Shown here is a 130-nucleotide RNA sequence from Priestia koreensis, a member of the family "Ribosomal protein L20 leader".
RNA sequence: AUGCAAAAGAAGGAGCACCCGCUUCUCACCUGAUGGACGCGCUAAGCAGUUAGCAGGUUUUGAGAUCGUUUUUUAUACUUGAACUUUCAAGAUGUGGGUGUGUGGUACAUACUCGCAUCUUUUUUUAUGA
Numbered sequence: 001a002u003g004c005a006a007a008a009g010a011a012g013g014a015g016c017a018c019c020c021g022c023u024u025c026u027c028a029c030c031u032g033a034u035g036g037a038c039g040c041g042c043u044a045a046g047c048a049g050u051u052a053g054c055a056g057g058u059u060u061u062g063a064g065a066u067c068g069u070u071u072u073u074u075a076u077a078c079u080u081g082a083a084c085u086u087u088c089a090a091g092a093u094g095u096g097g098g099u100g101u102g103u104g105g106u107a108c109a110u111a112c113u114c115g116c117a118u119c120u121u122u123u124u125u126u127a128u129g130a
Stems, first nucleotide, its partner, number of pairs: 011026006028058003036051003039047002093117010
About the family: This family is a putative r-protein leader autoregulatory structure found in B. subtilis and other low-GC Gram-positive bacteria. It is located in the 5' untranslated regions of mRNAs encoding initiation factor 3 followed by ribosomal proteins L35 and L20 (infC-rpmI-rplT). A Rho-independent transcription terminator structure that is probably involved in regulation is included at the 3' end.
Taxonomically the source falls in Priestia (Bacteria, Bacillota, Caryophanales, Bacillaceae).
Rfam links the family to the GO term regulation of gene expression.
Pairs were carried over by alignment from the consensus structure, which was predicted with CMfinder.
The literature on the family includes a 1994 paper in Prog Nucleic Acid Res Mol Biol by Zengel and Lindahl, "Diverse mechanisms for regulating ribosomal protein synthesis in Escherichia coli".
It scores 73 bits against the family's covariance model.